Overview: A member of the RNA family "LOOT RNA", 127 nucleotides long. Rfam's curators put it in the seed alignment.
[Rfam]
RNA sequence: UGCCUAAACCCAUUGAAAGUGAUUUUGAUGGGCAUGGCAUAAAUCCAUCCAAGGUAUAGAACCCGUCGUCAGGGAUCCUUGGAUGGUCGUGUGUGGAAACGCAUACGUUGAGGCCGAAAGGCUUCUA
Numbered sequence: 001u002g003c004c005u006a007a008a009c010c011c012a013u014u015g016a017a018a019g020u021g022a023u024u025u026u027g028a029u030g031g032g033c034a035u036g037g038c039a040u041a042a043a044u045c046c047a048u049c050c051a052a053g054g055u056a057u058a059g060a061a062c063c064c065g066u067c068g069u070c071a072g073g074g075a076u077c078c079u080u081g082g083a084u085g086g087u088c089g090u091g092u093g094u095g096g097a098a099a100c101g102c103a104u105a106c107g108u109u110g111a112g113g114c115c116g117a118a119a120g121g122c123u124u125c126u127a
Base pairs, nucleotide, nucleotide: 001039002038003037004036009032010031011030012029013028014027015026016025017024018023045086046085047084048083049082050081051080052079053078054077062074063073064072088107089106090105091104092103093102094101095100108127110125111124112123113122114121115120

The family's RNA type in Rfam is small RNA.